[Rfam]
RNA: Small nucleolar RNA ACA64
RNA sequence: ACAGUCUGAAAAUCACUUGGGGUCUCCUGUGGCCCCUGGUGCGAUAACUGUGCCGACAGCAGAGGGAGCAUUAAACUCAUUGCCCACAGGAAAGUGUGGGGAGUGAUCGUCAUCGUCGUCAUCG
Numbered sequence: 001a002c003a004g005u006c007u008g009a010a011a012a013u014c015a016c017u018u019g020g021g022g023u024c025u026c027c028u029g030u031g032g033c034c035c036c037u038g039g040u041g042c043g044a045u046a047a048c049u050g051u052g053c054c055g056a057c058a059g060c061a062g063a064g065g066g067a068g069c070a071u072u073a074a075a076c077u078c079a080u081u082g083c084c085c086a087c088a089g090g091a092a093a094g095u096g097u098g099g100g101g102a103g104u105g106a107u108c109g110u111c112a113u114c115g116u117c118g119u120c121a122u123c124g
Base pairs, nucleotide, nucleotide: 006050008048010045014041015040016039021034022033023032024031065117068114070113071112077106078105079104080103081102085098086097087096